A member of the RNA family "TPP riboswitch aptamer (THI element)", 93 nucleotides long. The match comes from Rfam's covariance-model search (62 bits). Pairs were carried over by alignment from the consensus structure, which is taken from published work.
RNA sequence: AAAUUGCGAAACGGGUGCUUAAUUGAGCUGAGAGGAUAACCGUCAUAACCCGAACAUGGUAAUGCAUGCGUGGGGAUUUGCCAACAAAAUAAA
Dot-bracket structure: .....(((((((((..((((....))))...........)))).....((((..((((......))))..))))..)))))............